This 67-nucleotide RNA from Methylomicrobium album belongs to the Rfam family "int-alpA RNA".
Rfam classes the family as a small RNA.
The base pairs follow the family's consensus structure, which is taken from published work.
Rfam's curators write: Acidobacteria (1 example), Planctomycetes (1 example), Proteobacteria.
Lineage of the source: Bacteria > Pseudomonadota > Methylococcales > Methylococcaceae > Methylomicrobium album.
RNA sequence: UAACCGGAUAGGCCGACGGGCCGACAAGGCGUAUUCAUCACGCGCUUUCCGGUUAAUCCCUUCGUGA
Numbered sequence: 001u002a003a004c005c006g007g008a009u010a011g012g013c014c015g016a017c018g019g020g021c022c023g024a025c026a027a028g029g030c031g032u033a034u035u036c037a038u039c040a041c042g043c044g045c046u047u048u049c050c051g052g053u054u055a056a057u058c059c060c061u062u063c064g065u066g067a
Stems, first nucleotide, its partner, number of pairs: 001055008011022004028046005